Small nucleolar RNA psi18S-1377: a 129-nucleotide RNA from Hermetia illucens. The family's consensus secondary structure was predicted with RNAalifold.

RNA sequence: AUGUCCUUGUGUUAUUUGCAAAUCGGAAACCGUUGAUUUGUGAUUGUCAAAAAGGACAAACAGCAAAGCCGGUCCUCAUCGUUUUUUGUGUUCCUUUGACCUUUAGACGUGUUUGAUUUGGCGACAUUG
Numbered sequence: 001a002u003g004u005c006c007u008u009g010u011g012u013u014a015u016u017u018g019c020a021a022a023u024c025g026g027a028a029a030c031c032g033u034u035g036a037u038u039u040g041u042g043a044u045u046g047u048c049a050a051a052a053a054g055g056a057c058a059a060a061c062a063g064c065a066a067a068g069c070c071g072g073u074c075c076u077c078a079u080c081g082u083u084u085u086u087u088g089u090g091u092u093c094c095u096u097u098g099a100c101c102u103u104u105a106g107a108c109g110u111g112u113u114u115g116a117u118u119u120g121g122c123g124a125c126a127u128u129g
Base pairs, nucleotide, nucleotide: 002058003057004056005055006054007053010049011048016043017042018041019040020039021038022037080109081108082107083106084105088100089099